[Rfam]
RNA sequence: AUUCUGCGAUGAAGCGGGAGAUUGCGGAGCCCGUCUCCGGUAACUUCCGUGGAGUAUGUCCGCUGCCGCGCCCUUGCACGGCAG
Numbered sequence: 001a002u003u004c005u006g007c008g009a010u011g012a013a014g015c016g017g018g019a020g021a022u023u024g025c026g027g028a029g030c031c032c033g034u035c036u037c038c039g040g041u042a043a044c045u046u047c048c049g050u051g052g053a054g055u056a057u058g059u060c061c062g063c064u065g066c067c068g069c070g071c072c073c074u075u076g077c078a079c080g081g082c083a084g
Stems, first nucleotide, its partner, number of pairs: 014050003018047003025039005057083004064078003